Background:
A member of the RNA family "6S / SsrS RNA" from Clostridium acetireducens, 177 nucleotides long. The literature on the family includes a 2000 paper in Cell by Wassarman and Storz, "6S RNA regulates E. coli RNA polymerase activity". Rfam describes the family as follows. E. coli 6S RNA was the first non coding RNA to be sequenced, but its function was unknown until recently. It consists of 184 nucleotides that fold into an extended hairpin structure with a large single-stranded internal bulge. The 6S RNA specifically associates with RNA polymerase holoenzyme containing the sigma70 specificity factor.
[Rfam]
Nucleotides: 177
Stems, first nucleotide, its partner, number of pairs: 002175001006171010017161003031150006037143003054124003058120004065114001069112006079102002084098005
Number, partner (000 for none) and nucleotide at each position: 001000u002175a003000a004000c005000u006171u007170c008169u009168g010167a011166a012165a013164u014163a015162u016000u017161c018160g019159a020000g021000a022000g023000g024000u025000u026000c027000u028000a029000u030000a031150u032149u033148u034147u035146g036145a037143a038142c039141c040000u041000a042000c043000a044000u045000u046000a047000u048000a049000a050000a051000a052000a053000a054124g055123g056122g057000a058120g059119u060118u061117c062000a063000a064000u065114a066000u067000u068000u069112a070111g071110a072109u073108g074107u075000a076000g077000a078000u079102a080101u081000g082000u083000a084098c085097u086096u087095u088094c089000u090000u091000u092000u093000a094088g095087a096086a097085a098084g099000a100000g101080a102079u103000a104000g105000a106000a107074g108073c109072a110071u111070c112069u113000u114065u115000g116000a117061g118060g119059a120058c121000a122056c123055c124054c125000a126000c127000c128000u129000a130000u131000c132000g133000g134000a135000g136000a137000g138000a139000u140000a141039g142038g143037u144000g145036u146035c147034a148033a149032a150031a151000u152000u153000a154000g155000a156000a157000c158000u159019u160018c161017g162015g163014u164013a165012u166011u167010u168009u169008g170007g171006a172000u173000u174000a175002u176000a177000a